[Rfam]
RNA sequence: AUGUAGUGUAGCAUGCCCGUUUGGUGAAUUACUCUAAUGAAUGUUUUAUAUUUAAAUACUUUGGGUAACGGGUUGUUACAAUCAA
Numbered sequence: 001a002u003g004u005a006g007u008g009u010a011g012c013a014u015g016c017c018c019g020u021u022u023g024g025u026g027a028a029u030u031a032c033u034c035u036a037a038u039g040a041a042u043g044u045u046u047u048a049u050a051u052u053u054a055a056a057u058a059c060u061u062u063g064g065g066u067a068a069c070g071g072g073u074u075g076u077u078a079c080a081a082u083c084a085a
Stems, first nucleotide, its partner, number of pairs: 002085001005082001007080007016072006
Rfam assigns this 85-nucleotide RNA from Medicago truncatula to the family "MIR2617 microRNA precursor family". A search with the family's covariance model found it, with a score of 81 bits. The organism belongs to Medicago, within Eukaryota.